[Rfam]
RNA sequence: CACCGGCGGGUCUUGGCACUGGAAGAAUUCACAGAUGUGCUGUUUUGUGUAAUCGUGGAUCUUGCAAUGCCAUUACCCGCUGGCA
Numbered sequence: 001c002a003c004c005g006g007c008g009g010g011u012c013u014u015g016g017c018a019c020u021g022g023a024a025g026a027a028u029u030c031a032c033a034g035a036u037g038u039g040c041u042g043u044u045u046u047g048u049g050u051a052a053u054c055g056u057g058g059a060u061c062u063u064g065c066a067a068u069g070c071c072a073u074u075a076c077c078c079g080c081u082g083g084c085a
Stems, first nucleotide, its partner, number of pairs: 003083008014072005020066002023062001025061002029058004034053001

Rfam assigns this 85-nucleotide RNA sequence from Trichogramma brassicae to the family "mir-263 microRNA precursor family". The match comes from Rfam's covariance-model search (64 bits). Its Rfam clan is "mir-182 clan". Taxonomically the source falls in Trichogramma (Eukaryota, Eumetazoa, Pancrustacea, Hexapoda).